[Rfam]
RNA: mir-602 microRNA precursor family
Organism: Pan troglodytes
RNA sequence: UCUCACCCCCGCCUGACACGGGCCACACCUGCGGCCUGCUGUGUUCACUCAGGCCGAGUGCGUCUCCUGCCAGGCAAGGGAGAGC
Numbered sequence: 001u002c003u004c005a006c007c008c009c010c011g012c013c014u015g016a017c018a019c020g021g022g023c024c025a026c027a028c029c030u031g032c033g034g035c036c037u038g039c040u041g042u043g044u045u046c047a048c049u050c051a052g053g054c055c056g057a058g059u060g061c062g063u064c065u066c067c068u069g070c071c072a073g074g075c076a077a078g079g080g081a082g083a084g085c
Stems, first nucleotide, its partner, number of pairs: 002084003006080003011075005017069002020067003025063002029058002032056007041048002